[Rfam]
RNA sequence: GGCGAUAAAUGGUCAUUGUAAUAAGCCUAUCGGACCCGGGGGCAGUACCCGGCGCCUCCACCAGGAACCGACGUUUCACCAAUGUCGGCUGCUGCUGGGGGCGAGUCAGGAUCGACGAGGGUGUAAAGAGUGUGCUUUCGCUCGGUAUGGUAGCCGCCGUUAUCGGACCAAAACUGUAGUUGCAAACGACAACUAUGCGGAAGCACGUCUCGCUGCUUAA
Numbered sequence: 001g002g003c004g005a006u007a008a009a010u011g012g013u014c015a016u017u018g019u020a021a022u023a024a025g026c027c028u029a030u031c032g033g034a035c036c037c038g039g040g041g042g043c044a045g046u047a048c049c050c051g052g053c054g055c056c057u058c059c060a061c062c063a064g065g066a067a068c069c070g071a072c073g074u075u076u077c078a079c080c081a082a083u084g085u086c087g088g089c090u091g092c093u094g095c096u097g098g099g100g101g102c103g104a105g106u107c108a109g110g111a112u113c114g115a116c117g118a119g120g121g122u123g124u125a126a127a128g129a130g131u132g133u134g135c136u137u138u139c140g141c142u143c144g145g146u147a148u149g150g151u152a153g154c155c156g157c158c159g160u161u162a163u164c165g166g167a168c169c170a171a172a173a174c175u176g177u178a179g180u181u182g183c184a185a186a187c188g189a190c191a192a193c194u195a196u197g198c199g200g201a202a203g204c205a206c207g208u209c210u211c212g213c214u215g216c217u218u219a220a
Base pairs, nucleotide, nucleotide: 001142002141003140004139005138014132015131016130017129026121027120028119030118031117032116036052037051038050039049040048053103054102055101056100057099058098059097143159144158145157146156
RNA: permuted transfer-messenger RNA